[Rfam]
RNA sequence: GUCAUACUACGGUGCAUCGUGGUGGAAAGUAAACGAUGACCAUUGAGUAACUCUGGGGUAAAAUACGUAUCAAAUUGCAAAAUAAGCCAGACCUUGGAAACUGCUCCGGGUCAGGCUUCUUU
Numbered sequence: 001g002u003c004a005u006a007c008u009a010c011g012g013u014g015c016a017u018c019g020u021g022g023u024g025g026a027a028a029g030u031a032a033a034c035g036a037u038g039a040c041c042a043u044u045g046a047g048u049a050a051c052u053c054u055g056g057g058g059u060a061a062a063a064u065a066c067g068u069a070u071c072a073a074a075u076u077g078c079a080a081a082a083u084a085a086g087c088c089a090g091a092c093c094u095u096g097g098a099a100a101c102u103g104c105u106c107c108g109g110g111u112c113a114g115g116c117u118u119c120u121u122u
Base pairs, nucleotide, nucleotide: 001040002039003038004037005036010035011034014030015029057071058070059069060068087115088114090112091111092110093109094108096106097105

The family of this 122-nucleotide RNA sequence from Candidatus Erwinia dacicola is "Enterobacteria greA leader".
NCBI's taxonomy places the organism under Bacteria, Pseudomonadati, Pseudomonadota, Enterobacterales, Erwinia.
The family's RNA type in Rfam is cis-regulatory leader.
The literature on the family includes a 2010 paper in Genome Biol by Naville and Gautheret, "Premature terminator analysis sheds light on a hidden world of bacterial transcriptional attenuation".